RNA sequence: CUGGACCCACACGACUGGCGCAGGUGGGUCACCACCGGGGAGUGAACGUCGAGAGCAUCGAACGCCUGGGUGCCUCAU
Numbered sequence: 001c002u003g004g005a006c007c008c009a010c011a012c013g014a015c016u017g018g019c020g021c022a023g024g025u026g027g028g029u030c031a032c033c034a035c036c037g038g039g040g041a042g043u044g045a046a047c048g049u050c051g052a053g054a055g056c057a058u059c060g061a062a063c064g065c066c067u068g069g070g071u072g073c074c075u076c077a078u
Stems, first nucleotide, its partner, number of pairs: 004050003010044003015039002017066004024035004055073005
Shown here is a 78-nucleotide RNA from Nocardioides sp. HDW12B, a member of the family "ZMP/ZTP riboswitch aptamer (pfl RNA motif)". NCBI's taxonomy places the organism under Bacteria, Bacillati, Actinomycetota, Actinomycetes, Nocardioides. It scores 48 bits against the family's covariance model. The base pairs follow the family's consensus structure, which is taken from published work.